[Rfam]
RNA sequence: AGGGUUAUAAUCAUGUAGACUUAUAUAAUUCCAAGAUUGGUUGGAAGUAUCUACGAACUACCGUAAUAGUUCUCUAUAAGUUCCGGUAAAUCAUAG
Number, nucleotide and partner (000 for none) at each position: 001a000002g000003g000004g000005u000006u000007a000008u000009a000010a000011u000012c000013a000014u000015g000016u000017a000018g082019a081020c080021u079022u078023a077024u076025a075026u000027a000028a000029u046030u045031c044032c043033a042034a041035g000036a000037u000038u000039g000040g000041u034042u033043g032044g031045a030046a029047g000048u000049a000050u000051c000052u000053a000054c000055g072056a071057a070058c069059u068060a067061c000062c000063g000064u000065a000066a000067u060068a059069g058070u057071u056072c055073u000074c000075u025076a024077u023078a022079a021080g020081u019082u018083c000084c000085g000086g000087u000088a000089a000090a000091u000092c000093a000094u000095a000096g000